Record summary
The family of this 92-nucleotide sequence from a Frankiales bacterium is "Selenocysteine transfer RNA". Taxonomically the source falls in Frankiales (Bacteria, Bacillati, Actinomycetota, Actinomycetes). It scores 77 bits against the family's covariance model.

RNA sequence: GGAGGCGUACGCGUUCCUGGUGGGCGCCCCGGCCUUCAAAGCCGGUGAGGGCGAGCAUCUCGUCCUGGCGGGUUCGAUUCCCGUCCGCCUCC
Numbered sequence: 001g002g003a004g005g006c007g008u009a010c011g012c013g014u015u016c017c018u019g020g021u022g023g024g025c026g027c028c029c030c031g032g033c034c035u036u037c038a039a040a041g042c043c044g045g046u047g048a049g050g051g052c053g054a055g056c057a058u059c060u061c062g063u064c065c066u067g068g069c070g071g072g073u074u075c076g077a078u079u080c081c082c083g084u085c086c087g088c089c090u091c092c
Stems, first nucleotide, its partner, number of pairs: 001092007009084001011027005017022001029045005048066005069083004